mraW RNA: a 112-nucleotide sequence from Microcaecilia unicolor.
[Rfam]
RNA sequence: UUGGCUGCUGGCUCUGCAGGCUCCGCCCGUCUCUUACGUCACUUCCCCUGCUUCGCUCCAGGGGCAGUGACGUAAGAGACGGGCGGAGCCUGCAGAGCCAGCAGCCAAUGCU
Numbered sequence: 001u002u003g004g005c006u007g008c009u010g011g012c013u014c015u016g017c018a019g020g021c022u023c024c025g026c027c028c029g030u031c032u033c034u035u036a037c038g039u040c041a042c043u044u045c046c047c048c049u050g051c052u053u054c055g056c057u058c059c060a061g062g063g064g065c066a067g068u069g070a071c072g073u074a075a076g077a078g079a080c081g082g083g084c085g086g087a088g089c090c091u092g093c094a095g096a097g098c099c100a101g102c103a104g105c106c107a108a109u110g111c112u
Stems, first nucleotide, its partner, number of pairs: 001108007009100002012097014027082017
It is annotated as a cis-regulatory element.